The record is a 66-nucleotide sequence from Monodelphis domestica, which matches "mir-193 microRNA precursor family" in Rfam.
Rfam's curators put it in the seed alignment.
A reference for the family is Warren et al. (2010), "The genome of a songbird", Nature.
The family's consensus secondary structure was predicted with RNAalifold.
RNA sequence: GAGGAUUGGGUCUUUGUGGGCGAGAUGAGGGUGUCAGUUCAACUGGCCUACAAAGUCCCAGUUCUC
Numbered sequence: 001g002a003g004g005a006u007u008g009g010g011u012c013u014u015u016g017u018g019g020g021c022g023a024g025a026u027g028a029g030g031g032u033g034u035c036a037g038u039u040c041a042a043c044u045g046g047c048c049u050a051c052a053a054a055g056u057c058c059c060a061g062u063u064c065u066c
Base pairs, nucleotide, nucleotide: 001066002065003064004063005062007060008059009058010057012055013054014053015052016051018049019048020047021046023044024043026041027040